Shown here is a 111-nucleotide sequence from Medicago truncatula, a member of the family "MIR5284 microRNA precursor family". The organism belongs to Medicago, within Eukaryota. The family's consensus secondary structure was predicted with RNAalifold. A search with the family's covariance model found it, with a score of 104 bits.
[Rfam]
RNA sequence: UUGUAAUUUCAGAUUAUUUCACUUUUGAUCUCUCAUUUUACGUGUCAUGUAUGCAGAUUCUGCUGACGUGGUGAAAUGAGAGACUAAAAGUUGAAGAAUCUGAAAUUACAG
Dot-bracket structure: ...((((((((((((..((.(((((((.(((((((((((....(((((((..((((...))))..)))))))))))))))))).))))))).))..))))))))))))...